Rfam assigns this 250-nucleotide part of an RNA from Coconut lethal yellowing phytoplasma to the family "Bacterial large subunit ribosomal RNA". It is one of the family's seed sequences.
RNA sequence: GGAAAUUUGAAAGGAACUGUCCCUAGUAUGAGAAGACCGGGAUGGAUAUACCUCUGGUGUUUCAGUUGGUUCGCCAGAGCCACAGCUGAGUAGCUAUGUAUAGAAGGGAUAAACACUGAAAGCAUCUAAGUGUGAAGCCUCCCUUAAGAUGAGAUUUCCCUAUGAGAUCCCUGAAAGACUAUCAGGUUGAUAGGCUAGAAGUGUAAGAAUAGUGAUAUUUUCAGCCUACUAGUACUAAUAGAUCCAUUGA
Numbered sequence: 001g002g003a004a005a006u007u008u009g010a011a012a013g014g015a016a017c018u019g020u021c022c023c024u025a026g027u028a029u030g031a032g033a034a035g036a037c038c039g040g041g042a043u044g045g046a047u048a049u050a051c052c053u054c055u056g057g058u059g060u061u062u063c064a065g066u067u068g069g070u071u072c073g074c075c076a077g078a079g080c081c082a083c084a085g086c087u088g089a090g091u092a093g094c095u096a097u098g099u100a101u102a103g104a105a106g107g108g109a110u111a112a113a114c115a116c117u118g119a120a121a122g123c124a125u126c127u128a129a130g131u132g133u134g135a136a137g138c139c140u141c142c143c144u145u146a147a148g149a150u151g152a153g154a155u156u157u158c159c160c161u162a163u164g165a166g167a168u169c170c171c172u173g174a175a176a177g178a179c180u181a182u183c184a185g186g187u188u189g190a191u192a193g194g195c196u197a198g199a200a201g202u203g204u205a206a207g208a209a210u211a212g213u214g215a216u217a218u219u220u221u222c223a224g225c226c227u228a229c230u231a232g233u234a235c236u237a238a239u240a241g242a243u244c245c246a247u248u249g250a
Base pairs, nucleotide, nucleotide: 001159002158003157004156005155006154007153008152011145012144013143014142017045018044019043020042021041022040023039047102048101049100050099051098055096056095057094062089063088064087065086066085067082068081069080070079071078072077106140107139108138113133114132115131116130117129163246166244167243168242169241170186171185172184173183174182191237192236193235194233195232196231197230198229199227201225207220208219209218210217211216